[Rfam]
RNA sequence: UCCUCUUCAACGCUGCGUUUCUAUGCUGCAAACGGAGAGAUUCGCGCGCAAGCAAGAGUCUCUCAUCACUGGCAUAUGAGAAAUUCGGAGUAACUUCUUCACACCACUCACCCAAUGUCGCCUGCCUUGUGCGGGAUUGACGGGUCUGCCCGCGAGGGCCUGGCGUGACUUCACGUCUGCAAUUGGCAUCAGAAAAGCAGGGUCCGGGCCGACCUCAUGUAUAUCCUGAAUCCCUUCCGGGGGAUGCAGUAGAAGAUGGGGUUCUAGGACUCGGUGUCCCUAUGGGAGAGCCGUUGCGAAAAGAUUGUGCAGAGCACUUGAGUGCGAUACGCAGCGUCUGGACACUGGCUGGCCUUGGCUGGUCAGGGGCUUGACAAUUCAAUUCCGAUCAUUCUGUUGAGGA
Numbered sequence: 001u002c003c004u005c006u007u008c009a010a011c012g013c014u015g016c017g018u019u020u021c022u023a024u025g026c027u028g029c030a031a032a033c034g035g036a037g038a039g040a041u042u043c044g045c046g047c048g049c050a051a052g053c054a055a056g057a058g059u060c061u062c063u064c065a066u067c068a069c070u071g072g073c074a075u076a077u078g079a080g081a082a083a084u085u086c087g088g089a090g091u092a093a094c095u096u097c098u099u100c101a102c103a104c105c106a107c108u109c110a111c112c113c114a115a116u117g118u119c120g121c122c123u124g125c126c127u128u129g130u131g132c133g134g135g136a137u138u139g140a141c142g143g144g145u146c147u148g149c150c151c152g153c154g155a156g157g158g159c160c161u162g163g164c165g166u167g168a169c170u171u172c173a174c175g176u177c178u179g180c181a182a183u184u185g186g187c188a189u190c191a192g193a194a195a196a197g198c199a200g201g202g203u204c205c206g207g208g209c210c211g212a213c214c215u216c217a218u219g220u221a222u223a224u225c226c227u228g229a230a231u232c233c234c235u236u237c238c239g240g241g242g243g244a245u246g247c248a249g250u251a252g253a254a255g256a257u258g259g260g261g262u263u264c265u266a267g268g269a270c271u272c273g274g275u276g277u278c279c280c281u282a283u284g285g286g287a288g289a290g291c292c293g294u295u296g297c298g299a300a301a302a303g304a305u306u307g308u309g310c311a312g313a314g315c316a317c318u319u320g321a322g323u324g325c326g327a328u329a330c331g332c333a334g335c336g337u338c339u340g341g342a343c344a345c346u347g348g349c350u351g352g353c354c355u356u357g358g359c360u361g362g363u364c365a366g367g368g369g370c371u372u373g374a375c376a377a378u379u380c381a382a383u384u385c386c387g388a389u390c391a392u393u394c395u396g397u398u399g400a401g402g403a
Stems, first nucleotide, its partner, number of pairs: 001403004008396002012335007022076004035064009086387005094312002097309001148159004162177005179308006200292002336375003340371002
Nuclear RNase P: a 403-nucleotide sequence from Colletotrichum graminicola. The family has 116 seed sequences and 3,848 matches in Rfam 15.1. A search with the family's covariance model found it, with a score of 43 bits.